[Rfam]
RNA sequence: UCAGCAGCGUCGCUGAGCGAACCGGGCCGAGGACCCAGUGCAGUCCUGGGGUGAAGCGCGACCGGGCAUCCAGCCGGUGCGCCGGGCGAGUUCCCCGCCCGAACCCGUCAGCUAACUCGGUAGGCGGUCGUGGAGAACCA
Numbered sequence: 001u002c003a004g005c006a007g008c009g010u011c012g013c014u015g016a017g018c019g020a021a022c023c024g025g026g027c028c029g030a031g032g033a034c035c036c037a038g039u040g041c042a043g044u045c046c047u048g049g050g051g052u053g054a055a056g057c058g059c060g061a062c063c064g065g066g067c068a069u070c071c072a073g074c075c076g077g078u079g080c081g082c083c084g085g086g087c088g089a090g091u092u093c094c095c096c097g098c099c100c101g102a103a104c105c106c107g108u109c110a111g112c113u114a115a116c117u118c119g120g121u122a123g124g125c126g127g128u129c130g131u132g133g134a135g136a137a138c139c140a
Base pairs, nucleotide, nucleotide: 011126012125013124014123018025026121027120028119029118030117031116036048037047049106050105051104057081058080059079060078084100085099086098087097